Record summary: Shown here is an 86-nucleotide RNA from Tetracentron sinense, a member of the family "mir-156 microRNA precursor family". Rfam links the family to the GO terms RISC complex and miRNA-mediated post-transcriptional gene silencing. The match comes from Rfam's covariance-model search (84 bits). Rfam describes the family as follows. This family represents the plant microRNA (miRNA) precursor mir-156.

RNA sequence: GUGACAGAAGAGAGUGAGCACUCAUGGUUUUUCUUGCAUCGAUGGUCUAUGCCUGAAGCUAUGCGUGCUUACUCUCUAUCUGUCAC
Numbered sequence: 001g002u003g004a005c006a007g008a009a010g011a012g013a014g015u016g017a018g019c020a021c022u023c024a025u026g027g028u029u030u031u032u033c034u035u036g037c038a039u040c041g042a043u044g045g046u047c048u049a050u051g052c053c054u055g056a057a058g059c060u061a062u063g064c065g066u067g068c069u070u071a072c073u074c075u076c077u078a079u080c081u082g083u084c085a086c
Base pairs, nucleotide, nucleotide: 001086002085003084004083005082006081007080008079010076011075012074013073014072015071016070017069018068019067020066021065023063024062025061